This 440-nucleotide part of an RNA from Methylophilales bacterium HTCC2181 belongs to the Rfam family "Bacterial large subunit ribosomal RNA". Its family is annotated with structural constituent of ribosome and ribosome in the Gene Ontology. NCBI's taxonomy places the organism under Bacteria, Pseudomonadati, Pseudomonadota, Betaproteobacteria, Nitrosomonadales. Its Rfam clan is "LSU clan". Pairs were carried over by alignment from the consensus structure, which is taken from published work.
[Rfam]
RNA sequence: CUCUCCGAAAACUAUUUAGGUAGUACCUCGUAUCUUACUCUCGGGGGUAGAGCACUGUUAUGGCUAGGGGGUCCUUACGGACUUACCAAACCAUUGCAAACUCCGAAUACCGAGAAGUACAAUUACGGGAGACAGACAUCGGGUGCUAACGUCCGGUGUCAAGAGGGAAACAACCCAGACCGCCAGCUAAGGUCCCAAAUGAUAUGCUAAGUGGUAAACGAAGUGAGAAGGCCCAGACAGCCAGGAGGUUGGCUUAGAAGCAGCCACCCUUUAAAGAAAGCGUAAUAGCUCACUGGUCGAGUCGUCUUGCACGGAAGAUGUAACGGGGCUAAGCAUAUAACCGAAGCUGCGGAUGCGUGUUUACACGCAUGGUAGGAGAGCGUUCUGUAGGUCUGUGAAGGUGUUCUGUGAGGAAUGCUGGAGAUAUCAGAAGUGCGAAU
Numbered sequence: 001c002u003c004u005c006c007g008a009a010a011a012c013u014a015u016u017u018a019g020g021u022a023g024u025a026c027c028u029c030g031u032a033u034c035u036u037a038c039u040c041u042c043g044g045g046g047g048u049a050g051a052g053c054a055c056u057g058u059u060a061u062g063g064c065u066a067g068g069g070g071g072u073c074c075u076u077a078c079g080g081a082c083u084u085a086c087c088a089a090a091c092c093a094u095u096g097c098a099a100a101c102u103c104c105g106a107a108u109a110c111c112g113a114g115a116a117g118u119a120c121a122a123u124u125a126c127g128g129g130a131g132a133c134a135g136a137c138a139u140c141g142g143g144u145g146c147u148a149a150c151g152u153c154c155g156g157u158g159u160c161a162a163g164a165g166g167g168a169a170a171c172a173a174c175c176c177a178g179a180c181c182g183c184c185a186g187c188u189a190a191g192g193u194c195c196c197a198a199a200u201g202a203u204a205u206g207c208u209a210a211g212u213g214g215u216a217a218a219c220g221a222a223g224u225g226a227g228a229a230g231g232c233c234c235a236g237a238c239a240g241c242c243a244g245g246a247g248g249u250u251g252g253c254u255u256a257g258a259a260g261c262a263g264c265c266a267c268c269c270u271u272u273a274a275a276g277a278a279a280g281c282g283u284a285a286u287a288g289c290u291c292a293c294u295g296g297u298c299g300a301g302u303c304g305u306c307u308u309g310c311a312c313g314g315a316a317g318a319u320g321u322a323a324c325g326g327g328g329c330u331a332a333g334c335a336u337a338u339a340a341c342c343g344a345a346g347c348u349g350c351g352g353a354u355g356c357g358u359g360u361u362u363a364c365a366c367g368c369a370u371g372g373u374a375g376g377a378g379a380g381c382g383u384u385c386u387g388u389a390g391g392u393c394u395g396u397g398a399a400g401g402u403g404u405u406c407u408g409u410g411a412g413g414a415a416u417g418c419u420g421g422a423g424a425u426a427u428c429a430g431a432a433g434u435g436c437g438a439a440u
Stems, first nucleotide, its partner, number of pairs: 001380006011024005026131001027129006035122001036119003039115006050104001051102002056098003060094004067087002069084005135160010165176003180352004185348003191342003200339001202338006219313002223310006230303003240297005246270003251265003271275001276291001280289002353370007381435001383432005391425003400419008